[Rfam]
RNA sequence: UCCUUCUUGUAUAAGCACUGUGCUAAAAUUACAAAAAUUAGGAGCCUAUCUUGGUUUUUGUAAUAGUGCUAGCAGAGUACACACAGGAAGAAGAGUAACUGCACCAGAUCCCAAAGACUGGGGUGGGCCUCUUUCUUAAUGUCCAGUGUCCUGUGUCUUAAGAUUUGGUGCAAUAUUG
Numbered sequence: 001u002c003c004u005u006c007u008u009g010u011a012u013a014a015g016c017a018c019u020g021u022g023c024u025a026a027a028a029u030u031a032c033a034a035a036a037a038u039u040a041g042g043a044g045c046c047u048a049u050c051u052u053g054g055u056u057u058u059u060g061u062a063a064u065a066g067u068g069c070u071a072g073c074a075g076a077g078u079a080c081a082c083a084c085a086g087g088a089a090g091a092a093g094a095g096u097a098a099c100u101g102c103a104c105c106a107g108a109u110c111c112c113a114a115a116g117a118c119u120g121g122g123g124u125g126g127g128c129c130u131c132u133u134u135c136u137u138a139a140u141g142u143c144c145a146g147u148g149u150c151c152u153g154u155g156u157c158u159u160a161a162g163a164u165u166u167g168g169u170g171c172a173a174u175a176u177u178g
Base pairs, nucleotide, nucleotide: 018077019076021074022073023072024071025070028067029066030065031064034058035057037055038054039053040052041051042050043049100172101171102170103169104168105167106166107165108164120149122147124145125144126143127142
A member of the RNA family "Small nucleolar RNA SNORA81" from Jaculus jaculus, 178 nucleotides long. The source organism's lineage runs through Eukaryota, Chordata, Craniata, Tetrapoda and Jaculus. On this family, see Gu et al., Nucleic Acids Res 2005: "A novel experimental approach for systematic identification of box H/ACA snoRNAs from eukaryotes". A search with the family's covariance model found it, with a score of 198 bits. Its family is annotated with nucleolus and RNA processing in the Gene Ontology.